Source information
This 116-nucleotide RNA sequence from Corynebacterium pyruviciproducens belongs to the Rfam family "mraW RNA". Taxonomically the source falls in Corynebacterium pyruviciproducens (Bacteria, Actinomycetota, Actinomycetes, Corynebacteriaceae).
Nucleotides: 116
Stems, first nucleotide, its partner, number of pairs: 010103007018096002021093013041076002047071008
Number, partner (000 for none) and nucleotide at each position: 001000g002000c003000g004000c005000g006000u007000a008000g009000c010103g011102c012101g013100u014099g015098c016097a017000g018096g019095a020000a021093c022092u023091c024090u025089g026088c027087u028086c029085g030084a031083g032082u033081g034000g035000c036000c037000g038000g039000g040000g041076u042075c043000u044000u045000g046000u047071u048070c049069u050068g051067a052066u053065g054064u055000a056000c057000u058000u059000c060000c061000c062000c063000g064054a065053u066052a067051u068050c069049a070048g071047a072000a073000c074000g075042g076041a077000c078000c079000c080000g081033c082032a083031c084030u085029c086028g087027g088026g089025c090024a091023g092022g093021g094000c095019u096018c097016u098015g099014u100013a101012c102011g103010c104000a105000c106000u107000c108000a109000a110000c111000u112000a113000c114000c115000a116000c